Overview: The record is a 321-nucleotide RNA, which matches "Alphaproteobacteria transfer-messenger RNA" in Rfam. Its family is annotated with RNA catabolic process in the Gene Ontology. By type it is a non-coding RNA gene. A search with the family's covariance model found it, with a score of 228 bits. Rfam's curators write: Bacterial tmRNA, also known as 10Sa RNA or SsrA, is named for its dual tRNA and mRNA-like properties. Its role is to liberate the mRNA from a stalled ribosome. To accomplish this part of the tmRNA is used as a reading frame that ends in a translation stop signal. The broken mRNA is replaced in the ribosome by the tmRNA and translation of the tmRNA leads to addition of a proteolysis tag to the incomplete protein enabling recognition by a protease.
RNA sequence: CCGCUUCCAUUGGGCGCCGCGACCUCCUAUAUUAGCUGGGUCGGCGGGAGACCGUCGACUAUGGCGAUAAACGCUGCUCGGAAUAAUCGUUGCGGACCCGGGGGCAGUACCCGGCGCCUCCACCACCCUUUGGGCCGGCGGCCCGCGUUGCGGGGGCGAACCAGGAUCGACGUGCGUGGUAAAGGUGUAGUUUUCGCCCGGCAUGGUACCGCCGUUAUCGGGCCAACGCAGAGGUGCGAAUGACAAUGAAGUCGCACUCGCUGCCUAGCAUCGCUAGGUAAGCGCGGCUUGGGGGGCGCCGGGCAACAGAAGCCCCCCGCU
Numbered sequence: 001c002c003g004c005u006u007c008c009a010u011u012g013g014g015c016g017c018c019g020c021g022a023c024c025u026c027c028u029a030u031a032u033u034a035g036c037u038g039g040g041u042c043g044g045c046g047g048g049a050g051a052c053c054g055u056c057g058a059c060u061a062u063g064g065c066g067a068u069a070a071a072c073g074c075u076g077c078u079c080g081g082a083a084u085a086a087u088c089g090u091u092g093c094g095g096a097c098c099c100g101g102g103g104g105c106a107g108u109a110c111c112c113g114g115c116g117c118c119u120c121c122a123c124c125a126c127c128c129u130u131u132g133g134g135c136c137g138g139c140g141g142c143c144c145g146c147g148u149u150g151c152g153g154g155g156g157c158g159a160a161c162c163a164g165g166a167u168c169g170a171c172g173u174g175c176g177u178g179g180u181a182a183a184g185g186u187g188u189a190g191u192u193u194u195c196g197c198c199c200g201g202c203a204u205g206g207u208a209c210c211g212c213c214g215u216u217a218u219c220g221g222g223c224c225a226a227c228g229c230a231g232a233g234g235u236g237c238g239a240a241u242g243a244c245a246a247u248g249a250a251g252u253c254g255c256a257c258u259c260g261c262u263g264c265c266u267a268g269c270a271u272c273g274c275u276a277g278g279u280a281a282g283c284g285c286g287g288c289u290u291g292g293g294g295g296g297c298g299c300c301g302g303g304c305a306a307c308a309g310a311a312g313c314c315c316c317c318c319g320c321u
Stems, first nucleotide, its partner, number of pairs: 040059008063198005073191005079185001088176003092173003098114005115158007199214004204225003209221002285301004291318006